The record is a 67-nucleotide RNA sequence from Cnephaeus nilssonii, which matches "mir-9256 microRNA precursor family" in Rfam. The match comes from Rfam's covariance-model search (82 bits). The organism belongs to Cnephaeus, within Eukaryota. The family's consensus secondary structure was predicted with RNAalifold.
[Rfam]
RNA sequence: ACUCACACUGAGUGGCCAGAUUAUUAUGAUCUCUGAAUGCGUAAUAAUCUGGCCACUCUGUGUGUGU
Numbered sequence: 001a002c003u004c005a006c007a008c009u010g011a012g013u014g015g016c017c018a019g020a021u022u023a024u025u026a027u028g029a030u031c032u033c034u035g036a037a038u039g040c041g042u043a044a045u046a047a048u049c050u051g052g053c054c055a056c057u058c059u060g061u062g063u064g065u066g067u
Stems, first nucleotide, its partner, number of pairs: 004064005010058008019049010